[Rfam]
RNA sequence: AUGCAGUGAUGAUCUCUUUAAUGGUGGUUUCGACUCACUGAUUGUUGAGUGAAGACGAUAUUUUCCUUGGCUGUGUCUGAGCAU
Numbered sequence: 001a002u003g004c005a006g007u008g009a010u011g012a013u014c015u016c017u018u019u020a021a022u023g024g025u026g027g028u029u030u031c032g033a034c035u036c037a038c039u040g041a042u043u044g045u046u047g048a049g050u051g052a053a054g055a056c057g058a059u060a061u062u063u064u065c066c067u068u069g070g071c072u073g074u075g076u077c078u079g080a081g082c083a084u
Stems, first nucleotide, its partner, number of pairs: 001084004
The record is an 84-nucleotide RNA sequence from Corvus brachyrhynchos, which matches "Small nucleolar RNA SNORD53/SNORD92" in Rfam. The family is grouped with related families in Rfam's "SNORD52 clan". Its family is annotated with RNA processing and nucleolus in the Gene Ontology. It is annotated as a C/D-box small nucleolar RNA.